[Rfam]
Nucleotides: 084
Base pairs, nucleotide, nucleotide: 012037013036017032018031019030020029021028022027040078041077042076043075045074046073047072048069049068050067055063056062
Number, partner (000 for none) and nucleotide at each position: 001000u002000g003000a004000a005000u006000u007000u008000u009000u010000u011000a012037g013036c014000a015000a016000a017032c018031c019030u020029g021028u022027c023000a024000a025000a026000a027022g028021g029020c030019a031018g032017g033000g034000a035000c036013g037012c038000a039000a040078a041077g042076c043075c044000a045074c046073g047072g048069a049068u050067c051000u052000a053000a054000g055063c056062g057000u058000a059000a060000a061000u062056c063055g064000u065000a066000u067050g068049a069048u070000a071000g072047c073046c074045g075043g076042g077041u078040u079000g080000c081000a082000a083000g084000g
c-di-GMP-I riboswitch aptamer: an 84-nucleotide RNA from Christensenella hongkongensis. The base pairs follow the family's consensus structure, which is taken from published work. From the family's description: GEMM was predicted in a large-scale screen for bacterial structured RNA regulatory elements. It scores 70 bits against the family's covariance model.